Vertebrate telomerase RNA: a 458-nucleotide RNA sequence from Pycnonotus jocosus.
By type it is a non-coding RNA gene.
Its Rfam clan is "Telomerase clan".
It scores 155 bits against the family's covariance model.
A reference for the family is Fragnet et al. (2005), "Comparative functional study of the viral telomerase RNA based on natural mutations", J Biol Chem.
Its family is annotated with telomerase catalytic core complex, telomere maintenance via telomerase and telomerase activity in the Gene Ontology.
Rfam describes the family as follows. Telomerase is a ribonucleoprotein reverse transcriptase that synthesises telomeric DNA. Telomerase RNAs differ greatly in sequence and structure between vertebrates, ciliates and yeasts, but they share a 5' pseudoknot structure close to the template sequence. Vertebrate telomerase RNAs have a 3' H/ACA snoRNA-like domain.
RNA sequence: UGUGCCGGGGUGGGCAGGCCCUGCGGCCAAACUAACCCUAAUGGCGGCGGCGCCCCUCACACACGCCCGCUGUUUUACUCGCUGACUUUCAGCGGGCAGAGGGUGCGGCUUAGGAGAAGCAGGGCGAGAAUGCGGGAAAAAUAUUUCCUUCCUCAAAAAAAGCCAGCGAGGGGCAUCCACACCCCGGCCCUCCCUGGGGUCCCUGUCUCUUUGCACCCAGGGGUGGGCCCAGCCCUCGCCCCUCGUGGAGGCCGCGGUCGGCAGGCGCAGCGCCGCUGCCGCCGCGAAGAGUUCGGCUCUGUCAGCCUUGGCGAUCGCCGGGACCAGAGGGCCAGCCCGCCUGCCCUGGGUAGCCGGGGGACCCCAGCAGAGUAAAAACGGGUGCGGCGCCGCGGGGCGCUGAGCCGCCGUGGCACCCAAAGAAGUGGGAGUACGCGGUCGGUGCCGCCCCGACACCC
Numbered sequence: 001u002g003u004g005c006c007g008g009g010g011u012g013g014g015c016a017g018g019c020c021c022u023g024c025g026g027c028c029a030a031a032c033u034a035a036c037c038c039u040a041a042u043g044g045c046g047g048c049g050g051c052g053c054c055c056c057u058c059a060c061a062c063a064c065g066c067c068c069g070c071u072g073u074u075u076u077a078c079u080c081g082c083u084g085a086c087u088u089u090c091a092g093c094g095g096g097c098a099g100a101g102g103g104u105g106c107g108g109c110u111u112a113g114g115a116g117a118a119g120c121a122g123g124g125c126g127a128g129a130a131u132g133c134g135g136g137a138a139a140a141a142u143a144u145u146u147c148c149u150u151c152c153u154c155a156a157a158a159a160a161a162g163c164c165a166g167c168g169a170g171g172g173g174c175a176u177c178c179a180c181a182c183c184c185c186g187g188c189c190c191u192c193c194c195u196g197g198g199g200u201c202c203c204u205g206u207c208u209c210u211u212u213g214c215a216c217c218c219a220g221g222g223g224u225g226g227g228c229c230c231a232g233c234c235c236u237c238g239c240c241c242c243u244c245g246u247g248g249a250g251g252c253c254g255c256g257g258u259c260g261g262c263a264g265g266c267g268c269a270g271c272g273c274c275g276c277u278g279c280c281g282c283c284g285c286g287a288a289g290a291g292u293u294c295g296g297c298u299c300u301g302u303c304a305g306c307c308u309u310g311g312c313g314a315u316c317g318c319c320g321g322g323a324c325c326a327g328a329g330g331g332c333c334a335g336c337c338c339g340c341c342u343g344c345c346c347u348g349g350g351u352a353g354c355c356g357g358g359g360g361a362c363c364c365c366a367g368c369a370g371a372g373u374a375a376a377a378a379c380g381g382g383u384g385c386g387g388c389g390c391c392g393c394g395g396g397g398c399g400c401u402g403a404g405c406c407g408c409c410g411u412g413g414c415a416c417c418c419a420a421a422g423a424a425g426u427g428g429g430a431g432u433a434c435g436c437g438g439u440c441g442g443u444g445c446c447g448c449c450c451c452g453a454c455a456c457c458c
Base pairs, nucleotide, nucleotide: 005187006186007185008184009183010182011181012180013178014177017174020173021172022171054103055102056101057100058099065097066096067095068094069093070092071091072090081167082166083165084164086162087160088159089158194367195366196365197364198363199362200361222337223336224335226333227332228331229330230329234322235321236320238318239317240313242311243310253286254285255284256283257282259281260280261279262278264274265273266272288300289299290298291297382450384448385447386446387445388444389443390442391441408438409437410436411435412434416429417428418427